[Rfam]
RNA: MIR7486 microRNA precursor family
RNA sequence: CCUGGGGGAGCGUUUUGUCCACGUUAGCACAAAGCGCUUCCUUGAGGGCACACUUUGUGCUAACGUAGACAAAACGCUCCCCUAAGG
Numbered sequence: 001c002c003u004g005g006g007g008g009a010g011c012g013u014u015u016u017g018u019c020c021a022c023g024u025u026a027g028c029a030c031a032a033a034g035c036g037c038u039u040c041c042u043u044g045a046g047g048g049c050a051c052a053c054u055u056u057g058u059g060c061u062a063a064c065g066u067a068g069a070c071a072a073a074a075c076g077c078u079c080c081c082c083u084a085a086g087g
Stems, first nucleotide, its partner, number of pairs: 001086001003084017021066001023064012036051001040047002